[Rfam]
RNA sequence: GCCUUAUCAAGAGUGGUGGAGGGAUCGGGCCCAAUGAAACCCGGCAACCGGCCUUAACGGCAAUGGUGCUAAUUCCCGCAGAAUGGCAGCAUUCUGGAAGAUGAGGA
Numbered sequence: 001g002c003c004u005u006a007u008c009a010a011g012a013g014u015g016g017u018g019g020a021g022g023g024a025u026c027g028g029g030c031c032c033a034a035u036g037a038a039a040c041c042c043g044g045c046a047a048c049c050g051g052c053c054u055u056a057a058c059g060g061c062a063a064u065g066g067u068g069c070u071a072a073u074u075c076c077c078g079c080a081g082a083a084u085g086g087c088a089g090c091a092u093u094c095u096g097g098a099a100g101a102u103g104a105g106g107a
Base pairs, nucleotide, nucleotide: 002106003105004104005103006102007101008100013042015041016040017039021032022031023030026078027077028076029075043070044069045068046067048066049065051061052060053059074099079096080095081094082093083092084091
RNA: SAM riboswitch aptamer (S box leader)
Organism: Thermoclostridium caenicola